[Rfam]
Purine riboswitch aptamer: a 102-nucleotide sequence from Lentibacillus salicampi.
RNA sequence: CAUGAAUUCAAUAGCUUAUUUCAUAUAAUAGCAGGAAUACGGCCUGCAAGUUUCUACCGGUUUACCGUAAAUGAACCGACUAUGAAAGGGAGCAGAACCAAU
Numbered sequence: 001c002a003u004g005a006a007u008u009c010a011a012u013a014g015c016u017u018a019u020u021u022c023a024u025a026u027a028a029u030a031g032c033a034g035g036a037a038u039a040c041g042g043c044c045u046g047c048a049a050g051u052u053u054c055u056a057c058c059g060g061u062u063u064a065c066c067g068u069a070a071a072u073g074a075a076c077c078g079a080c081u082a083u084g085a086a087a088g089g090g091a092g093c094a095g096a097a098c099c100a101a102u
Base pairs, nucleotide, nucleotide: 019087020086021085022084023083024082025081029049031047032046033045034044035043058078059077060076061075062074063073064072
Dot-bracket structure: ..................(((((((...(.(((((.......))))).)........(((((((.......)))))))..)))))))...............

The organism belongs to Lentibacillus, within Bacteria. A search with the family's covariance model found it, with a score of 84 bits. About the family: Riboswitches are metabolite binding domains within certain messenger RNAs that serve as precision sensors for their corresponding targets.